MIR6152 microRNA precursor family: a 94-nucleotide RNA from Nicotiana tabacum. Gene Ontology terms of the family: RISC complex and miRNA-mediated post-transcriptional gene silencing. NCBI's taxonomy places the organism under Eukaryota, Viridiplantae, Magnoliopsida, Solanaceae, Nicotiana. A search with the family's covariance model found it, with a score of 92 bits. The family has 2 seed sequences and 5,807 matches in Rfam 15.1.
RNA sequence: UGGACAGAUUAUUGUAUUCGACUGUAUUCACGACGUGAAAUAGGGGAUUGCACUGUUUUUAGAACGAAAAGUGAAUCAAUUAACAUAGACUUCU
Numbered sequence: 001u002g003g004a005c006a007g008a009u010u011a012u013u014g015u016a017u018u019c020g021a022c023u024g025u026a027u028u029c030a031c032g033a034c035g036u037g038a039a040a041u042a043g044g045g046g047a048u049u050g051c052a053c054u055g056u057u058u059u060u061a062g063a064a065c066g067a068a069a070a071g072u073g074a075a076u077c078a079a080u081u082a083a084c085a086u087a088g089a090c091u092u093c094u
Base pairs, nucleotide, nucleotide: 002093003092004091009088010087011086015085017083018082020081021080023078024077026076027075028074029073030072031071034066035065036064037059038058039057040056041055042054043053